[Rfam]
RNA sequence: ACUGGCUGAAAGUCACCUGCGGCCUGGGCAGUGGCCACGGGUGAGAUGAGACGCCCAGAGCCACGGGCCGUAGCUCGCCACUCACUUCUCCAUGUCGGGGGCAAAACCCAGGCCCCGACACAC
Numbered sequence: 001a002c003u004g005g006c007u008g009a010a011a012g013u014c015a016c017c018u019g020c021g022g023c024c025u026g027g028g029c030a031g032u033g034g035c036c037a038c039g040g041g042u043g044a045g046a047u048g049a050g051a052c053g054c055c056c057a058g059a060g061c062c063a064c065g066g067g068c069c070g071u072a073g074c075u076c077g078c079c080a081c082u083c084a085c086u087u088c089u090c091c092a093u094g095u096c097g098g099g100g101g102c103a104a105a106a107c108c109c110a111g112g113c114c115c116c117g118a119c120a121c122a123c
Stems, first nucleotide, its partner, number of pairs: 005052001007050001010047001013044004021036004066114004075104001077102003084095002
Rfam assigns this 123-nucleotide RNA sequence from Galemys pyrenaicus to the family "Small nucleolar RNA ACA64".
The family's consensus secondary structure was predicted with WAR.
The family has 30 seed sequences and 9,537 matches in Rfam 15.1.
It is annotated as an H/ACA-box small nucleolar RNA.
The literature on the family includes a 2006 paper in RNA by Schattner et al., "A computational screen for mammalian pseudouridylation guide H/ACA RNAs".